[Rfam]
RNA sequence: GGGUCCGGCAAGCCACUGACCUCCUGAAAGAACCGGGGGAAAGAACUACCCGCCCACCCGCCCUCCCCGCGCGGGAAGCCCGCGUCACCCGUCCGAGUGACCGGCUUGCAGCAGCGAGAUCCGGGCGGCUACGUUCGCCGCGACAACCGCAAACAGAUACGGCCCCCGGCCGGGACUGGCAUCCCGAACGAGGGCCUGACCGCCAGGAAGUAACACCUUCCUG
Numbered sequence: 001g002g003g004u005c006c007g008g009c010a011a012g013c014c015a016c017u018g019a020c021c022u023c024c025u026g027a028a029a030g031a032a033c034c035g036g037g038g039g040a041a042a043g044a045a046c047u048a049c050c051c052g053c054c055c056a057c058c059c060g061c062c063c064u065c066c067c068c069g070c071g072c073g074g075g076a077a078g079c080c081c082g083c084g085u086c087a088c089c090c091g092u093c094c095g096a097g098u099g100a101c102c103g104g105c106u107u108g109c110a111g112c113a114g115c116g117a118g119a120u121c122c123g124g125g126c127g128g129c130u131a132c133g134u135u136c137g138c139c140g141c142g143a144c145a146a147c148c149g150c151a152a153a154c155a156g157a158u159a160c161g162g163c164c165c166c167c168g169g170c171c172g173g174g175a176c177u178g179g180c181a182u183c184c185c186g187a188a189c190g191a192g193g194g195c196c197u198g199a200c201c202g203c204c205a206g207g208a209a210g211u212a213a214c215a216c217c218u219u220c221c222u223g
Stems, first nucleotide, its partner, number of pairs: 007204003014071001016069001018068001085100004090095001114139001116136002161196005167190002172185004206221005